[Rfam]
RNA: Singlet oxygen resistance RNA X
Organism: Rubellimicrobium thermophilum
RNA sequence: AGGCCGGCGAUGCUCCGCGCUCGUCGUCCUCGACCUCCCUGUUGGACUUAGCCGGGCCAUCGCGCCCGGCUUUUUUU
Numbered sequence: 001a002g003g004c005c006g007g008c009g010a011u012g013c014u015c016c017g018c019g020c021u022c023g024u025c026g027u028c029c030u031c032g033a034c035c036u037c038c039c040u041g042u043u044g045g046a047c048u049u050a051g052c053c054g055g056g057c058c059a060u061c062g063c064g065c066c067c068g069g070c071u072u073u074u075u076u077u
Base pairs, nucleotide, nucleotide: 001030002029003028005026006025007024008023009022010021050071051070052069053068054067055066056065057064